[Rfam]
RNA sequence: ACAAAAUGACAAGAACAGGCAAACGUAAUUUCACACCAGAAUUUCGGUUAGAAGCUGCUCAAUUAGUUGUUGAUCAAGGUUAUUCCGUUCGAGAAGCAGCAGAAGCGAUGAGCGUUGGUAAGUC
Numbered sequence: 001a002c003a004a005a006a007u008g009a010c011a012a013g014a015a016c017a018g019g020c021a022a023a024c025g026u027a028a029u030u031u032c033a034c035a036c037c038a039g040a041a042u043u044u045c046g047g048u049u050a051g052a053a054g055c056u057g058c059u060c061a062a063u064u065a066g067u068u069g070u071u072g073a074u075c076a077a078g079g080u081u082a083u084u085c086c087g088u089u090c091g092a093g094a095a096g097c098a099g100c101a102g103a104a105g106c107g108a109u110g111a112g113c114g115u116u117g118g119u120a121a122g123u124c
Stems, first nucleotide, its partner, number of pairs: 007121001009119002025058003029053003033049001036047002039044001064099001067095002070092004075087001078084002106117004
Rfam assigns this 124-nucleotide RNA sequence from Thalassotalea euphylliae to the family "isrC Hfq binding RNA".
The literature on the family includes a 2008 paper in Nucleic Acids Res by Padalon-Brauch et al., "Small RNAs encoded within genetic islands of Salmonella typhimurium show host-induced expression and role in virulence".
The base pairs follow the family's consensus structure, which was predicted with WAR.
The family's RNA type in Rfam is small RNA.